RNA sequence: UACCUCUUUAAAGUAGUCCCGUGAGGCUACAAAGAGGCUCACGAAUCCUGUUUUUGCGGGAGAAGUGUAGACCUCUUUGCCUUAAGCGGAGAGGUCUUUUUCAU
Numbered sequence: 001u002a003c004c005u006c007u008u009u010a011a012a013g014u015a016g017u018c019c020c021g022u023g024a025g026g027c028u029a030c031a032a033a034g035a036g037g038c039u040c041a042c043g044a045a046u047c048c049u050g051u052u053u054u055u056g057c058g059g060g061a062g063a064a065g066u067g068u069a070g071a072c073c074u075c076u077u078u079g080c081c082u083u084a085a086g087c088g089g090a091g092a093g094g095u096c097u098u099u100u101u102c103a104u
Stems, first nucleotide, its partner, number of pairs: 003037007013030006046061006067099001069097012
Annotation:
The record is a 104-nucleotide sequence from Halalkalibacter krulwichiae, which matches "PyrR binding site" in Rfam. By type it is a cis-regulatory element. It scores 66 bits against the family's covariance model. Taxonomically the source falls in Halalkalibacter (Bacteria, Bacillati, Bacillota, Caryophanales). The base pairs follow the family's consensus structure, which is taken from published work.